This 122-nucleotide RNA sequence from Phtheirospermum japonicum belongs to the Rfam family "U5 spliceosomal RNA". NCBI's taxonomy places the organism under Eukaryota, Viridiplantae, Mesangiospermae, Pentapetalae, Phtheirospermum.

[Rfam]
RNA sequence: AGCUGCGUGGUGAGCACAGAGCUAACUAUUCUUUCGCCUUUUACUAAAGAAUACCGUGUGUUCUCCACAUCUCAAGUAGCAUACGCCUCUUUUUGUAGGGGUUCUUUCCUCUGUGGGAAGUU
Dot-bracket structure: ..((((.(((.(((((((........((((((((...........))))))))...))))))).)))........)))).................(......(((((.......))))).)

The family's consensus secondary structure is taken from published work. The match comes from Rfam's covariance-model search (73 bits).